Notes
The record is a 35-nucleotide RNA from Trichechus manatus, which matches "Iron response element I" in Rfam. The literature on the family includes a 1987 paper in Science by Hentze et al., "Identification of the iron-responsive element for the translational regulation of human ferritin mRNA". Gene Ontology term of the family: response to iron ion. The source organism's lineage runs through Eukaryota, Craniata, Amniota, Sirenia and Trichechus manatus. It is annotated as a cis-regulatory element. Rfam 15.1 lists 6,829 matches to the family in 599 species.
RNA sequence: UGGUCUCCUGCUUCAACAGCGCUUGAACGGAACGC
Numbered sequence: 001u002g003g004u005c006u007c008c009u010g011c012u013u014c015a016a017c018a019g020c021g022c023u024u025g026a027a028c029g030g031a032a033c034g035c
Stems, first nucleotide, its partner, number of pairs: 003033002006031003010028001012027005017021001